Shown here is a 64-nucleotide sequence from Hydra vulgaris, a member of the family "mir-3012 microRNA precursor family". Pairs were carried over by alignment from the consensus structure, which was predicted with RNAalifold. Gene Ontology terms of the family: miRNA-mediated post-transcriptional gene silencing and RISC complex. NCBI's taxonomy places the organism under Eukaryota, Anthoathecata, Aplanulata, Hydridae, Hydra.

RNA sequence: AAGGAAAAACUUUCUGUAUAUCCACUAAUGCUUUCAUCAGUGGAUUUGUAGAAAGUUUUACCAA
Dot-bracket structure: ..((.(((.(((((((((.(((((((.(((....))).))))))).))))))))).))).))..